[Rfam]
RNA: Plant signal recognition particle RNA
RNA sequence: GUCGAGGUUAGUAACGCGUGCUUGUAACCCGAGUGGGGACACUAAGGUGACGGGACAUGAAUUAAUUUGACUGGAUCGGGUCUAAAGUUGGCAUUGUGUUGGCCCGCCCUAUCCAAGUUGGGAGUUGGUUCAUGUGGGUUUGGCGAAAGCUUGAUCUUCAUGGGCCCUAAAGUGGAGGGGACCGCGUGAGGCUGGUUUCACAGAGCAACGAAAACCUCCCGCUCUUGUCAGUGGAAGGAUAACGGGCUUGCGCCUCUUAGGCCCAAUAGUAUCCAGUUGAAUGAUCCUCCAUUGGACCGUCAUUUUU
Numbered sequence: 001g002u003c004g005a006g007g008u009u010a011g012u013a014a015c016g017c018g019u020g021c022u023u024g025u026a027a028c029c030c031g032a033g034u035g036g037g038g039a040c041a042c043u044a045a046g047g048u049g050a051c052g053g054g055a056c057a058u059g060a061a062u063u064a065a066u067u068u069g070a071c072u073g074g075a076u077c078g079g080g081u082c083u084a085a086a087g088u089u090g091g092c093a094u095u096g097u098g099u100u101g102g103c104c105c106g107c108c109c110u111a112u113c114c115a116a117g118u119u120g121g122g123a124g125u126u127g128g129u130u131c132a133u134g135u136g137g138g139u140u141u142g143g144c145g146a147a148a149g150c151u152u153g154a155u156c157u158u159c160a161u162g163g164g165c166c167c168u169a170a171a172g173u174g175g176a177g178g179g180g181a182c183c184g185c186g187u188g189a190g191g192c193u194g195g196u197u198u199c200a201c202a203g204a205g206c207a208a209c210g211a212a213a214a215c216c217u218c219c220c221g222c223u224c225u226u227g228u229c230a231g232u233g234g235a236a237g238g239a240u241a242a243c244g245g246g247c248u249u250g251c252g253c254c255u256c257u258u259a260g261g262c263c264c265a266a267u268a269g270u271a272u273c274c275a276g277u278u279g280a281a282u283g284a285u286c287c288u289c290c291a292u293u294g295g296a297c298c299g300u301c302a303u304u305u306u307u
Base pairs, nucleotide, nucleotide: 001040002039003038004023005022006021009018028037029036030035044306045305046304047303048302049301050300051299052298053297056294057293058291059290061285062284063283064282066280068279069278070277071276072275073274074273075272076271078264079263080262081261082260083259084258085257087256090254091253099250101248102247103246104245105244106243108238109237112235113234114233115232117229119227120226121225122224123223124222125221127166128165129164130163131162132161133160134159136157137156138155139154140153142151143150144149167172174219175218176217177216178215185210186209187208192203193202194201